The record is a 55-nucleotide sequence, which matches "eL15-Euryarchaeota ribosomal protein leader" in Rfam.
[Rfam]
RNA sequence: CGGGAUCCGUCCCGUUGGAAUGUAGCCGCGGAAAAAAAGGCGGCUGAACCGUGAA
Numbered sequence: 001c002g003g004g005a006u007c008c009g010u011c012c013c014g015u016u017g018g019a020a021u022g023u024a025g026c027c028g029c030g031g032a033a034a035a036a037a038a039g040g041c042g043g044c045u046g047a048a049c050c051g052u053g054a055a
Base pairs, nucleotide, nucleotide: 001014002013003012004011005010016051017050018049023046024045025044026043027042028041029040
Rfam's curators put it in the seed alignment. It is annotated as a cis-regulatory leader.